[Rfam]
Background:
Rfam assigns this 134-nucleotide sequence from Chrysochloris asiatica to the family "Small nucleolar RNA SNORA14". ACA14 is a member of the H/ACA class of snoRNA that guide the sites of modification of uridines to pseudouridines. Gene Ontology terms of the family: nucleolus and RNA processing. The base pairs follow the family's consensus structure, which was predicted with RNAfold. Rfam classes the family as an H/ACA-box small nucleolar RNA.
RNA sequence: CAGCAUUCUUAAACCCUCUUGGGAGCUUCUGUGUGGGUGCUUCCAGGAUCAUGAGUGAAUGCUACAGAAACUGCAGGGAGUCCAAGGGCUGCGCUUCGCCGGUGGCUUAGCCUUAUUUCAGACCUGCAACAUCU
Number, nucleotide and partner (000 for none) at each position: 001c000002a000003g062004c061005a060006u059007u000008c055009u054010u053011a052012a000013a000014c000015c000016c000017u048018c047019u046020u045021g044022g043023g000024a041025g040026c039027u000028u000029c000030u000031g000032u000033g000034u000035g000036g000037g000038u000039g026040c025041u024042u000043c022044c021045a020046g019047g018048a017049u000050c000051a000052u011053g010054a009055g008056u000057g000058a000059a006060u005061g004062c003063u000064a000065c000066a134067g133068a132069a000070a000071c000072u128073g127074c126075a125076g124077g123078g000079a000080g000081u000082c000083c000084a000085a114086g113087g112088g111089c110090u109091g108092c000093g106094c105095u000096u000097c102098g000099c000100c000101g000102g097103u000104g000105g094106c093107u000108u091109a090110g089111c088112c087113u086114u085115a000116u000117u000118u000119c000120a000121g000122a000123c077124c076125u075126g074127c073128a072129a000130c000131a000132u068133c067134u066
NCBI's taxonomy places the organism under Eukaryota, Euteleostomi, Sarcopterygii, Tetrapoda, Chrysochloris. A search with the family's covariance model found it, with a score of 122 bits.